[Rfam]
RNA sequence: CACGUCAGCGCGCUUUGAUGACGUGGUAACAAAGCGUGUCCACGAAAGCGCGAUUUGUGUCCACGUCAGCAAAGCGCGCUGACGUGG
Numbered sequence: 001c002a003c004g005u006c007a008g009c010g011c012g013c014u015u016u017g018a019u020g021a022c023g024u025g026g027u028a029a030c031a032a033a034g035c036g037u038g039u040c041c042a043c044g045a046a047a048g049c050g051c052g053a054u055u056u057g058u059g060u061c062c063a064c065g066u067c068a069g070c071a072a073a074g075c076g077c078g079c080u081g082a083c084g085u086g087g
Base pairs, nucleotide, nucleotide: 001086002085003084004083005082006081007080008079009078010077011076012075013074014073015072016071017070019068020067021066023064024063025062026061029058030057031056032055033054035052036051037050038049
Shown here is an 87-nucleotide sequence from Gossypium raimondii, a member of the family "MIR7486 microRNA precursor family". The organism belongs to Gossypium, within Eukaryota. A search with the family's covariance model found it, with a score of 86 bits.